[Rfam]
RNA sequence: ACGGGCUGGAUUCCGUUCACUGACACCGGUACCUGAUACGGCCGGUGCAG
Number, nucleotide and partner (000 for none) at each position: 001a016002c015003g014004g013005g012006c000007u000008g000009g000010a000011u000012u005013c004014c003015g002016u001017u000018c000019a000020c050021u049022g048023a000024c047025a046026c045027c044028g043029g042030u041031a000032c000033c000034u000035g000036a000037u000038a000039c000040g000041g030042c029043c028044g027045g026046u025047g024048c022049a021050g020
This 50-nucleotide sequence from Streptomyces hygroscopicus belongs to the Rfam family "L17-Actino-Proteobacteria ribosomal protein leader". Rfam classes the family as a cis-regulatory leader. NCBI's taxonomy places the organism under Bacteria, Actinomycetota, Streptomycetaceae, Streptomyces, Streptomyces hygroscopicus. The family's consensus secondary structure is taken from published work.